RNA sequence: AGUGUCAAGGCUAUAGCAGAAGCACUCACAAUGUGGCCUGUCAGAUUCCAAUGAUAUCUGUAACUUCUGCU
Dot-bracket structure: ........[[[[..((((((((((.......)))]]]]...(((((((....)).)))))....)))))))
Numbered sequence: 001a002g003u004g005u006c007a008a009g010g011c012u013a014u015a016g017c018a019g020a021a022g023c024a025c026u027c028a029c030a031a032u033g034u035g036g037c038c039u040g041u042c043a044g045a046u047u048c049c050a051a052u053g054a055u056a057u058c059u060g061u062a063a064c065u066u067c068u069g070c071u
Stems, first nucleotide, its partner, number of pairs: 009038004015071007022034003042060005047054002
The record is a 71-nucleotide RNA from Alligator mississippiensis, which matches "Mammalian CPEB3 ribozyme" in Rfam.
Rfam links the family to the GO term RNA nuclease activity.
Taxonomically the source falls in Alligator (Eukaryota, Metazoa, Vertebrata, Archelosauria).
The mammalian CPEB3 ribozyme is a self cleaving RNA located in the second intron of the CPEB3 gene which belongs to a family of genes regulating messenger RNA polyadenylation. This ribozyme is highly conserved and found only in mammals. The CPEB3 ribozyme is structurally and biochemically related to the human hepatitis delta virus (HDV) ribozyme and the HDV ribozyme is proposed to have arisen from the human transcriptome. There is currently only one other known self cleaving ribozyme in mammals, the CoTC motif.